[Rfam]
RNA sequence: GUUGGUGUCCGUGAUGACUUUUUUUUCCCCGACAGAUCGACCAUGUUGACGGUCAGCAAUUUUAAGCCAAAGUUGUCUGAUAAGGCAUCUGU
Numbered sequence: 001g002u003u004g005g006u007g008u009c010c011g012u013g014a015u016g017a018c019u020u021u022u023u024u025u026u027c028c029c030c031g032a033c034a035g036a037u038c039g040a041c042c043a044u045g046u047u048g049a050c051g052g053u054c055a056g057c058a059a060u061u062u063u064a065a066g067c068c069a070a071a072g073u074u075g076u077c078u079g080a081u082a083a084g085g086c087a088u089c090u091g092u
Stems, first nucleotide, its partner, number of pairs: 001092002004089006
Shown here is a 92-nucleotide sequence from Scleropages formosus, a member of the family "Small nucleolar SNORD12/SNORD106". Lineage of the source: Eukaryota > Metazoa > Eumetazoa > Osteoglossidae > Scleropages. Clan: SNORD12 clan. Gene Ontology terms of the family: nucleolus and RNA processing. A search with the family's covariance model found it, with a score of 51 bits. For this family Rfam cites "RNomics: an experimental approach that identifies 201 candidates for novel, small, non-messenger RNAs in mouse" (Huttenhofer et al., EMBO J, 2001).